[Rfam]
RNA: Vault RNA
RNA sequence: GUGUUGGCAUUUAGCUCAGUGGAUACUUCAGCUGUCACAGACUCUUCUUGUAAUACAGUAACAUGUUCAAAUCCUACCACAGGCGCUGCCCAACACUUUA
Numbered sequence: 001g002u003g004u005u006g007g008c009a010u011u012u013a014g015c016u017c018a019g020u021g022g023a024u025a026c027u028u029c030a031g032c033u034g035u036c037a038c039a040g041a042c043u044c045u046u047c048u049u050g051u052a053a054u055a056c057a058g059u060a061a062c063a064u065g066u067u068c069a070a071a072u073c074c075u076a077c078c079a080c081a082g083g084c085g086c087u088g089c090c091c092a093a094c095a096c097u098u099u100a
Stems, first nucleotide, its partner, number of pairs: 002095006014084003019080004027071002031067001